[Rfam]
Shown here is a 72-nucleotide sequence from Cafeteria roenbergensis, a member of the family "tRNA". A search with the family's covariance model found it, with a score of 72 bits. Pairs were carried over by alignment from the consensus structure, which is taken from published work. The family's RNA type in Rfam is transfer RNA. The organism belongs to Cafeteria, within Eukaryota.
RNA sequence: GCCUGUAUAGCUUAGUGGUAGAGCACCUGUCUUGUAAACAGGAGGUCUCUGGUUCGAUCCCAGAUGCAGGCA
Numbered sequence: 001g002c003c004u005g006u007a008u009a010g011c012u013u014a015g016u017g018g019u020a021g022a023g024c025a026c027c028u029g030u031c032u033u034g035u036a037a038a039c040a041g042g043a044g045g046u047c048u049c050u051g052g053u054u055c056g057a058u059c060c061c062a063g064a065u066g067c068a069g070g071c072a
Stems, first nucleotide, its partner, number of pairs: 001071007010024004026042005048064005